[Rfam]
This 74-nucleotide RNA sequence from Alligator sinensis belongs to the Rfam family "Mammalian CPEB3 ribozyme". Lineage of the source: Eukaryota > Metazoa > Tetrapoda > Archosauria > Alligator. The match comes from Rfam's covariance-model search (53 bits).
Nucleotides: 074
Base pairs, nucleotide, nucleotide: 012041013040014039015038018074019073020072021071022070023069024068025037027035046063047062048061049060050059051058052057
Number, partner (000 for none) and nucleotide at each position: 001000a002000c003000u004000g005000c006000c007000c008000u009000a010000a011000c012041g013040g014039c015038c016000a017000u018074a019073g020072c021071a022070g023069a024068a025037g026000c027035g028000c029000u030000c031000a032000c033000a034000u035027u036000a037025u038015g039014g040013c041012c042000c043000u044000g045000u046063c047062a048061g049060a050059u051058u052057c053000u054000a055000a056000u057052g058051a059050a060049u061048c062047u063046g064000u065000g066000a067000a068024u069023u070022c071021u072020g073019c074018u